Rfam assigns this 185-nucleotide sequence from Natronincola peptidivorans to the family "Lysine riboswitch aptamer". The base pairs follow the family's consensus structure, which is taken from published work. Taxonomically the source falls in Natronincola (Bacteria, Bacillota, Clostridia, Natronincolaceae).
[Rfam]
RNA sequence: UUAAUAAAUAGAGGUGCACCGAAGAAGAGUAUAGGGUAGGUGUCAAGAGGGAAACCCUCAAUACUACCUAUAGAAAGGCUGACGUGCCGAAAUCAUUAAAUAGUUAUCGAUUUAAUGGUUGGGGGUUUGGUGAAUAACUAAACAACUGUCAUGGGAAAACUAAUCCAUGGAGUGCUAUUUGUUAA
Numbered sequence: 001u002u003a004a005u006a007a008a009u010a011g012a013g014g015u016g017c018a019c020c021g022a023a024g025a026a027g028a029g030u031a032u033a034g035g036g037u038a039g040g041u042g043u044c045a046a047g048a049g050g051g052a053a054a055c056c057c058u059c060a061a062u063a064c065u066a067c068c069u070a071u072a073g074a075a076a077g078g079c080u081g082a083c084g085u086g087c088c089g090a091a092a093u094c095a096u097u098a099a100a101u102a103g104u105u106a107u108c109g110a111u112u113u114a115a116u117g118g119u120u121g122g123g124g125g126u127u128u129g130g131u132g133a134a135u136a137a138c139u140a141a142a143c144a145a146c147u148g149u150c151a152u153g154g155g156a157a158a159a160c161u162a163a164u165c166c167a168u169g170g171a172g173u174g175c176u177a178u179u180u181g182u183u184a185a
Stems, first nucleotide, its partner, number of pairs: 006180006016087004023080002032072002034069006091120011121147002125143007149170007
Dot-bracket structure: .....((((((....((((...((.......((((((((........................)))))).))......))...))))...(((((((((((........)))))))))))((..(((((((.....)))))))..)).(((((((........)))))))....)))))).....